[Rfam]
Notes:
This 468-nucleotide part of an RNA from Encephalitozoon hellem belongs to the Rfam family "Microsporidia small subunit ribosomal RNA". The sequence is in the family's curated seed alignment.
RNA sequence: CACCAGGUUGAUUCUGCCUGACGUGGAUGCUAUUCUCUGGGGCUAAGCCAUGCAUGUUUAUGAAGCCUUUAUGGGGGAUUGACGGACGGCUCAGUGAUAGUACGAUGAUUUGAUUGGGAGCCUGGAUGUAACUGUGGGAAACUGCAGGUAAGUUCUGGGGGUGGUAGUUUGUAGCUACUGCGUACCGAGUAAGUUGUAGGCCUAUCAGCUGGUAGUUAGGGUAAUGGCCUAACUAGGCGGAGACGGGAGACGGGGGAUCAGGGUUUGAUUCCGGAGAGGGAGCCUGAGAGAUGGCUACUACGUCCAAGGAUGGCAGCAGGCGCGAAACUUGCCUAAUCCUUAUUGGGGAGGCGGUUAUGAGAAGUAAGAUGUUUAGCAAGUAUAAAUUUGUUGUGAUUUACUGGAGGGCAAGUCGGGUGCCAGCAGCCGCGGUAAUACCUGCUCCAGUAGUGUCUAUGGUGAAUGCUG
Numbered sequence: 001c002a003c004c005a006g007g008u009u010g011a012u013u014c015u016g017c018c019u020g021a022c023g024u025g026g027a028u029g030c031u032a033u034u035c036u037c038u039g040g041g042g043c044u045a046a047g048c049c050a051u052g053c054a055u056g057u058u059u060a061u062g063a064a065g066c067c068u069u070u071a072u073g074g075g076g077g078a079u080u081g082a083c084g085g086a087c088g089g090c091u092c093a094g095u096g097a098u099a100g101u102a103c104g105a106u107g108a109u110u111u112g113a114u115u116g117g118g119a120g121c122c123u124g125g126a127u128g129u130a131a132c133u134g135u136g137g138g139a140a141a142c143u144g145c146a147g148g149u150a151a152g153u154u155c156u157g158g159g160g161g162u163g164g165u166a167g168u169u170u171g172u173a174g175c176u177a178c179u180g181c182g183u184a185c186c187g188a189g190u191a192a193g194u195u196g197u198a199g200g201c202c203u204a205u206c207a208g209c210u211g212g213u214a215g216u217u218a219g220g221g222u223a224a225u226g227g228c229c230u231a232a233c234u235a236g237g238c239g240g241a242g243a244c245g246g247g248a249g250a251c252g253g254g255g256g257a258u259c260a261g262g263g264u265u266u267g268a269u270u271c272c273g274g275a276g277a278g279g280g281a282g283c284c285u286g287a288g289a290g291a292u293g294g295c296u297a298c299u300a301c302g303u304c305c306a307a308g309g310a311u312g313g314c315a316g317c318a319g320g321c322g323c324g325a326a327a328c329u330u331g332c333c334u335a336a337u338c339c340u341u342a343u344u345g346g347g348g349a350g351g352c353g354g355u356u357a358u359g360a361g362a363a364g365u366a367a368g369a370u371g372u373u374u375a376g377c378a379a380g381u382a383u384a385a386a387u388u389u390g391u392u393g394u395g396a397u398u399u400a401c402u403g404g405a406g407g408g409c410a411a412g413u414c415g416g417g418u419g420c421c422a423g424c425a426g427c428c429g430c431g432g433u434a435a436u437a438c439c440u441g442c443u444c445c446a447g448u449a450g451u452g453u454c455u456a457u458g459g460u461g462a463a464u465g466c467u468g
Stems, first nucleotide, its partner, number of pairs: 004020005022458010033363005039356002041323001047321003051318003056083002059081002066074001090276003101198006109192002114188004119183001124156003132147006201247003208238003213235008251273004255266004278299002281296003301312004329353001331352003337348004376394004401447006414441004423430002
The family's consensus secondary structure is taken from published work. Gene Ontology terms of the family: structural constituent of ribosome and ribosome. The source organism's lineage runs through Eukaryota, Microsporidia, Apansporoblastina, Unikaryonidae and Encephalitozoon. Its Rfam clan is "SSU clan".